RNA sequence: AAGAAGAAUCCGGGAGAGACAAGACCAUCUGCGCCGAAGGGGCAUAAACUCUCAGGCAAAAGGACCGGAUUUGGACG
Numbered sequence: 001a002a003g004a005a006g007a008a009u010c011c012g013g014g015a016g017a018g019a020c021a022a023g024a025c026c027a028u029c030u031g032c033g034c035c036g037a038a039g040g041g042g043c044a045u046a047a048a049c050u051c052u053c054a055g056g057c058a059a060a061a062g063g064a065c066c067g068g069a070u071u072u073g074g075a076c077g
Base pairs, nucleotide, nucleotide: 006072007071008070009069010068011067012066013065020031021030023028033057034056035055036053037052040051041050042049
RNA: Glycine riboswitch aptamer
Organism: Lachnospiraceae bacterium 3_1_57FAA_CT1